The family of this 79-nucleotide RNA from Sphenodon punctatus is "mir-194 microRNA precursor family". On this family, see Lagos-Quintana et al., RNA 2003: "New microRNAs from mouse and human". The base pairs follow the family's consensus structure, which was predicted with RNAalifold. Gene Ontology terms of the family: miRNA-mediated post-transcriptional gene silencing and RISC complex. It scores 83 bits against the family's covariance model.

RNA sequence: CAGUGCUGUCAAGUGUAACAGCAACUCCAUGUGGACUGCGUAUACUUCCAGUGGAGAUGCUGUUACUUUUGAAAGACAC
Numbered sequence: 001c002a003g004u005g006c007u008g009u010c011a012a013g014u015g016u017a018a019c020a021g022c023a024a025c026u027c028c029a030u031g032u033g034g035a036c037u038g039c040g041u042a043u044a045c046u047u048c049c050a051g052u053g054g055a056g057a058u059g060c061u062g063u064u065a066c067u068u069u070u071g072a073a074a075g076a077c078a079c
Base pairs, nucleotide, nucleotide: 009072010071011070015066016065017064018063019062020061021060022059025056026055027054028053029052030051032050033049034048